[Rfam]
A member of the RNA family "Streptomyces sRNA 4677" from Streptomyces sp. VN1, 270 nucleotides long. The pairing is the family consensus, mapped onto this sequence. It is annotated as a small RNA. The match comes from Rfam's covariance-model search (140 bits). Located in the intergenic region between anti-sigma factor SCO4677 gene and a putative regulatory protein gene SCO4676. scr4677 expression requires the SCO4677 activity and scr4677 sRNA itself seem to affect the levels of the SCO4676-associated transcripts. NCBI's taxonomy places the organism under Bacteria, Actinomycetota, Kitasatosporales, Streptomycetaceae, Streptomyces. On this family, see Hindra et al., PLoS One 2014: "Complex intra-operonic dynamics mediated by a small RNA in Streptomyces coelicolor".
RNA sequence: CGCUCCGGUGCCGUCGGCGACUGAAAGACAAAAGACCCGGGAGAAAGCAACCCACCAAACCCGACCCUUCCGUCCGUGACCGCGCAACCUCGGGGCUCACUCGGGCGGGUGAACAUCUCCUGUCCAGCUGGAUUUCCGGACGCCGGAGGCCCGACGCUCAGGGCAACGCACCACCAGGACCAAAGACCGAGACUGCAGACAUGAGACGGCCCCCGCCGGGACGGCAAUCCCAAAGCGAGGGCCUGACCACAGAGGAAGAAGCGCUUCCCA
Numbered sequence: 001c002g003c004u005c006c007g008g009u010g011c012c013g014u015c016g017g018c019g020a021c022u023g024a025a026a027g028a029c030a031a032a033a034g035a036c037c038c039g040g041g042a043g044a045a046a047g048c049a050a051c052c053c054a055c056c057a058a059a060c061c062c063g064a065c066c067c068u069u070c071c072g073u074c075c076g077u078g079a080c081c082g083c084g085c086a087a088c089c090u091c092g093g094g095g096c097u098c099a100c101u102c103g104g105g106c107g108g109g110u111g112a113a114c115a116u117c118u119c120c121u122g123u124c125c126a127g128c129u130g131g132a133u134u135u136c137c138g139g140a141c142g143c144c145g146g147a148g149g150c151c152c153g154a155c156g157c158u159c160a161g162g163g164c165a166a167c168g169c170a171c172c173a174c175c176a177g178g179a180c181c182a183a184a185g186a187c188c189g190a191g192a193c194u195g196c197a198g199a200c201a202u203g204a205g206a207c208g209g210c211c212c213c214c215g216c217c218g219g220g221a222c223g224g225c226a227a228u229c230c231c232a233a234a235g236c237g238a239g240g241g242c243c244u245g246a247c248c249a250c251a252g253a254g255g256a257a258g259a260a261g262c263g264c265u266u267c268c269c270a
Stems, first nucleotide, its partner, number of pairs: 008250003017083003097112006129160003208243005214237003218231004254268005